[Rfam]
Nucleotides: 074
Base pairs, nucleotide, nucleotide: 001073002072003071004070005069006068007067010026011025012024013023029043030042031041032040050066051065052064053063054062
Number, partner (000 for none) and nucleotide at each position: 001073g002072g003071g004070c005069c006068c007067g008000u009000a010026g011025c012024u013023c014000a015000g016000a017000u018000g019000g020000u021000u022000a023013g024012a025011g026010c027000c028000a029043c030042c031041g032040g033000c034000u035000c036000a037000u038000a039000a040032c041031c042030g043029g044000a045000a046000g047000g048000u049000c050066c051065c052064a053063g054062g055000u056000u057000c058000g059000a060000a061000u062054c063053c064052u065051g066050g067007c068006g069005g070004g071003c072002c073001c074000a